[Rfam]
RNA sequence: UCGCCGCUGGACCUGACACAACAUUCUGCAGCAAUGUUGUGCGACCUGCCGUGUCGGUCCAGCAGCCU
Numbered sequence: 001u002c003g004c005c006g007c008u009g010g011a012c013c014u015g016a017c018a019c020a021a022c023a024u025u026c027u028g029c030a031g032c033a034a035u036g037u038u039g040u041g042c043g044a045c046c047u048g049c050c051g052u053g054u055c056g057g058u059c060c061a062g063c064a065g066c067c068u
Base pairs, nucleotide, nucleotide: 003066004065006063007062009060010059011058012057013056020038021037022036023035024034025033043055044054045053

A member of the RNA family "bZIP non canonical Hac1/Xbp1 intron" from Zasmidium cellare, 68 nucleotides long. It is annotated as a small RNA. For this family Rfam cites "Conserved RNA structures in the non-canonical Hac1/Xbp1 intron" (Hooks and Griffiths-Jones, RNA Biol, 2011). About the family: bZIP intron RNA is a non-canonical intron that was first reported in HAC1 gene in yeast and XBP1 gene in Metazoa.